Lysine riboswitch aptamer: a 171-nucleotide sequence from Photobacterium gaetbulicola.
RNA sequence: UAAAUCAGUAGAGGCGCGCUGCCUAAGAGUAACCGAGCAGAGGGUGAUACCUGUGAAGCCGGAGAAAGGAGUCAGCGCCGAAGUGACUGCAGCUAUCAACUCAGUCGCUGGGUCUGUGUCGAAUAGGCACAGAACUGCCAUAGUAUUUACCUAUGGAGCGCUACCUGAAGG
Numbered sequence: 001u002a003a004a005u006c007a008g009u010a011g012a013g014g015c016g017c018g019c020u021g022c023c024u025a026a027g028a029g030u031a032a033c034c035g036a037g038c039a040g041a042g043g044g045u046g047a048u049a050c051c052u053g054u055g056a057a058g059c060c061g062g063a064g065a066a067a068g069g070a071g072u073c074a075g076c077g078c079c080g081a082a083g084u085g086a087c088u089g090c091a092g093c094u095a096u097c098a099a100c101u102c103a104g105u106c107g108c109u110g111g112g113u114c115u116g117u118g119u120c121g122a123a124u125a126g127g128c129a130c131a132g133a134a135c136u137g138c139c140a141u142a143g144u145a146u147u148u149a150c151c152u153a154u155g156g157a158g159c160g161c162u163a164c165c166u167g168a169a170g171g
Base pairs, nucleotide, nucleotide: 008164009163010162011161016078017077018076019075020074021073023071024070033062034061035060037059038058082109083108084107085106086105087104088103089102091101092100110136111135113133114132115131116130117129118128119127120126138156139155140154141153142152143151
Dot-bracket structure: .......((((....((((((.((........(((.((...................))))).......)).))))))...((((((((.((.......))))))))))((.((((((((.....)))))))).)).((((((.......))))))....)))).......

Rfam describes the family as follows. Riboswitches are metabolite binding domains within certain messenger RNAs that serve as precision sensors for their corresponding targets.